Rfam assigns this 91-nucleotide sequence from Corynebacterium stationis to the family "Selenocysteine transfer RNA". The family's consensus secondary structure is taken from published work.
[Rfam]
RNA sequence: GGAGGCGUACGUGUCCUGGUGGGCGCCCCGGUCUUCAAAACCGGUGAGGCCAAGUAGCUUGGUCUGGCAGGUUCGAUUCCUGUCCGUCUCC
Dot-bracket structure: (((((((.(.((((((....)))))).(((((.......)))))..(((((.........)))))..((((.......))))).)))))))
Numbered sequence: 001g002g003a004g005g006c007g008u009a010c011g012u013g014u015c016c017u018g019g020u021g022g023g024c025g026c027c028c029c030g031g032u033c034u035u036c037a038a039a040a041c042c043g044g045u046g047a048g049g050c051c052a053a054g055u056a057g058c059u060u061g062g063u064c065u066g067g068c069a070g071g072u073u074c075g076a077u078u079c080c081u082g083u084c085c086g087u088c089u090c091c
Stems, first nucleotide, its partner, number of pairs: 001091007009083001011026006028044005047065005068082004